[Rfam]
RNA sequence: GAGUGAUGAGGAAAUGCUCCUGUGACAACUGGGUUCGUCACAUUCAUCUGAUCUCAGAUGUUUACGAGCUAGUCUGAACUC
Numbered sequence: 001g002a003g004u005g006a007u008g009a010g011g012a013a014a015u016g017c018u019c020c021u022g023u024g025a026c027a028a029c030u031g032g033g034u035u036c037g038u039c040a041c042a043u044u045c046a047u048c049u050g051a052u053c054u055c056a057g058a059u060g061u062u063u064a065c066g067a068g069c070u071a072g073u074c075u076g077a078a079c080u081c
Base pairs, nucleotide, nucleotide: 001081002080003079004078

Notes: Shown here is an 81-nucleotide sequence from Oryza sativa, a member of the family "small nucleolar RNA snoR114". It is one of the family's seed sequences. The organism belongs to Oryza sativa, within Eukaryota.